RNA sequence: CUCUGUUUGGAUUCAAGAUGUUUAUUGGACAGAGCGACGCGCAUUAGCCACCGACCAAGGGAAGUCCGAAAGGUGGCAAGUAAAGGCAUUUAUCAGAACUUGCGAAAGCACGAUAACACCGCCCCGUUGUAGCUGCUAGAUGGGGACAAGCGGAAAAGGAAAAACUGAUAGAUGUUGUGAGACUCGGAUGGGGGCGAAAGCUUUACUCACAGCGCAGGG
Numbered sequence: 001c002u003c004u005g006u007u008u009g010g011a012u013u014c015a016a017g018a019u020g021u022u023u024a025u026u027g028g029a030c031a032g033a034g035c036g037a038c039g040c041g042c043a044u045u046a047g048c049c050a051c052c053g054a055c056c057a058a059g060g061g062a063a064g065u066c067c068g069a070a071a072g073g074u075g076g077c078a079a080g081u082a083a084a085g086g087c088a089u090u091u092a093u094c095a096g097a098a099c100u101u102g103c104g105a106a107a108g109c110a111c112g113a114u115a116a117c118a119c120c121g122c123c124c125c126g127u128u129g130u131a132g133c134u135g136c137u138a139g140a141u142g143g144g145g146a147c148a149a150g151c152g153g154a155a156a157a158g159g160a161a162a163a164a165c166u167g168a169u170a171g172a173u174g175u176u177g178u179g180a181g182a183c184u185c186g187g188a189u190g191g192g193g194g195c196g197a198a199a200g201c202u203u204u205a206c207u208c209a210c211a212g213c214g215c216a217g218g219g
Stems, first nucleotide, its partner, number of pairs: 001034007047077006064189005087174010175212006192203004
Record summary: A member of the RNA family "PAGEV RNA" from Vibrio eleionomae, 219 nucleotides long. By type it is a small RNA. The match comes from Rfam's covariance-model search (109 bits). Pairs were carried over by alignment from the consensus structure, which is taken from published work. NCBI's taxonomy places the organism under Bacteria, Pseudomonadati, Pseudomonadota, Vibrionales, Vibrio.